[Rfam]
A member of the RNA family "mir-551 microRNA precursor family" from Monodelphis domestica, 71 nucleotides long. The base pairs follow the family's consensus structure, which was predicted with RNAalifold. On this family, see Murchison et al., Genome Res 2008: "Conservation of small RNA pathways in platypus". The source organism's lineage runs through Eukaryota, Bilateria, Dipnotetrapodomorpha, Theria and Monodelphis. It is one of the family's seed sequences.

RNA sequence: CCCCAGAAAUCAAGGAUGGGUGAGACCUCGUGUGCAAACUGAAAGGCGACCCAUACUUGGUUUCAGGGGCU
Numbered sequence: 001c002c003c004c005a006g007a008a009a010u011c012a013a014g015g016a017u018g019g020g021u022g023a024g025a026c027c028u029c030g031u032g033u034g035c036a037a038a039c040u041g042a043a044a045g046g047c048g049a050c051c052c053a054u055a056c057u058u059g060g061u062u063u064c065a066g067g068g069g070c071u
Stems, first nucleotide, its partner, number of pairs: 001069004006064006013057002018052004026046003